The family of this 76-nucleotide RNA sequence from Leptobrachium leishanense is "Small nucleolar RNA SNORD19". A search with the family's covariance model found it, with a score of 48 bits. Lineage of the source: Eukaryota > Chordata > Sarcopterygii > Amphibia > Leptobrachium. Pairs were carried over by alignment from the consensus structure. On this family, see Huttenhofer et al., EMBO J 2001: "RNomics: an experimental approach that identifies 201 candidates for novel, small, non-messenger RNAs in mouse".
RNA sequence: GAGAAGUGAGGAGAAUAUCUAGUACAGUCUUAUUAUAAUGAAGACUGUCGGAUCCAACGAUGAUCUCCCAAAGGUU
Number, nucleotide and partner (000 for none) at each position: 001g067002a066003g065004a064005a000006g000007u000008g000009a000010g000011g000012a000013g000014a000015a000016u000017a000018u000019c000020u000021a000022g000023u000024a000025c000026a000027g000028u000029c000030u000031u000032a000033u000034u000035a000036u000037a000038a000039u000040g000041a000042a000043g000044a000045c000046u000047g000048u000049c000050g000051g000052a000053u000054c000055c000056a000057a000058c000059g000060a000061u000062g000063a000064u004065c003066u002067c001068c000069c000070a000071a000072a000073g000074g000075u000076u000